RNA sequence: GGAAAAGCGUAGAACGGGAGAAGUACUCCUAGCGUCGCUUGCCAGGGAGACGGGUGCCAUAGACUGAAAGCCCCGUUCAAGCCGAUAGGGAGGAAAUUCGCCCGGGAGCUUCAGGCUGAAGCUGUCGGCAUCUUCAUGCCGUACAAGUGGGUAGGUCUCGACGGCGUUCCCGCCGUUAUCGGGAAACGACACUUGUCGGCCGAGUGGGCUGUAUUUUCUGCAGCCUAGCGGGGUGGUACCGCGGAAAAUAACUUCCGUCCCCAUU
Numbered sequence: 001g002g003a004a005a006a007g008c009g010u011a012g013a014a015c016g017g018g019a020g021a022a023g024u025a026c027u028c029c030u031a032g033c034g035u036c037g038c039u040u041g042c043c044a045g046g047g048a049g050a051c052g053g054g055u056g057c058c059a060u061a062g063a064c065u066g067a068a069a070g071c072c073c074c075g076u077u078c079a080a081g082c083c084g085a086u087a088g089g090g091a092g093g094a095a096a097u098u099c100g101c102c103c104g105g106g107a108g109c110u111u112c113a114g115g116c117u118g119a120a121g122c123u124g125u126c127g128g129c130a131u132c133u134u135c136a137u138g139c140c141g142u143a144c145a146a147g148u149g150g151g152u153a154g155g156u157c158u159c160g161a162c163g164g165c166g167u168u169c170c171c172g173c174c175g176u177u178a179u180c181g182g183g184a185a186a187c188g189a190c191a192c193u194u195g196u197c198g199g200c201c202g203a204g205u206g207g208g209c210u211g212u213a214u215u216u217u218c219u220g221c222a223g224c225c226u227a228g229c230g231g232g233g234u235g236g237u238a239c240c241g242c243g244g245a246a247a248a249u250a251a252c253u254u255c256c257g258u259c260c261c262c263a264u265u
Base pairs, nucleotide, nucleotide: 007109008108015104016103017102018101026092027091028090029089030088038081039080040079049077050076051075052074053073054072113158114157115156116155117154162175163174164173207225208224209223210222211221212220213219230262231261232260233259241258242257243256244255245254
Description: T-box leader: a 265-nucleotide RNA from Heliobacterium mobile. The family's consensus secondary structure is taken from published work. Rfam's curators write: Uncharged tRNA acts as the effector for transcription antitermination of genes in the T-box leader family. T-boxes are found upstream of many aminoacyl-tRNA synthetase genes and some amino acid biosynthetic genes usually in Gram-positive bacteria. The organism belongs to Heliobacterium, within Bacteria.